[Rfam]
This 73-nucleotide RNA sequence belongs to the Rfam family "RAGATH-18 RNA". Rfam classes the family as a small RNA. Rfam's curators write: Actinobacteria, Firmicutes, Fusobacteria, Thermotogae (1 example). Pairs were carried over by alignment from the consensus structure, which is taken from published work.

RNA sequence: UCUGUGGAGAGUACAAAAAUGUGAGUAGUAUCUAGAUUCAUUUAGUACGAAAGCAUACUCUGUGAAACAGAAA
Numbered sequence: 001u002c003u004g005u006g007g008a009g010a011g012u013a014c015a016a017a018a019a020u021g022u023g024a025g026u027a028g029u030a031u032c033u034a035g036a037u038u039c040a041u042u043u044a045g046u047a048c049g050a051a052a053g054c055a056u057a058c059u060c061u062g063u064g065a066a067a068c069a070g071a072a073a
Stems, first nucleotide, its partner, number of pairs: 001071005009060005020055003028048003033044002